[Rfam]
RNA sequence: GUUAAGGUGGCAGAGCCCGGUAAUUGCAUAAAACUUAAACUUUUAUAUCCAGAGAUUCAAAUCCUCUCCUUAACA
Numbered sequence: 001g002u003u004a005a006g007g008u009g010g011c012a013g014a015g016c017c018c019g020g021u022a023a024u025u026g027c028a029u030a031a032a033a034c035u036u037a038a039a040c041u042u043u044u045a046u047a048u049c050c051a052g053a054g055a056u057u058c059a060a061a062u063c064c065u066c067u068c069c070u071u072a073a074c075a
Stems, first nucleotide, its partner, number of pairs: 001074007010027004029045005051067004
RNA: tRNA